A member of the RNA family "mir-2 microRNA precursor family" from Drosophila mojavensis, 69 nucleotides long. The organism belongs to mojavensis species complex, within Eukaryota. The base pairs follow the family's consensus structure, which was predicted with PFOLD.
RNA sequence: UUGCGCGUCAAAUUGACUGUGAGCUAUGUUUAUGAGAUUAUCAUAUCACAGCCAUUUUGACGAGUUUGA
Numbered sequence: 001u002u003g004c005g006c007g008u009c010a011a012a013u014u015g016a017c018u019g020u021g022a023g024c025u026a027u028g029u030u031u032a033u034g035a036g037a038u039u040a041u042c043a044u045a046u047c048a049c050a051g052c053c054a055u056u057u058u059g060a061c062g063a064g065u066u067u068g069a
Stems, first nucleotide, its partner, number of pairs: 006062007014054002017051006025045003
Gene Ontology terms of the family: miRNA-mediated post-transcriptional gene silencing and RISC complex.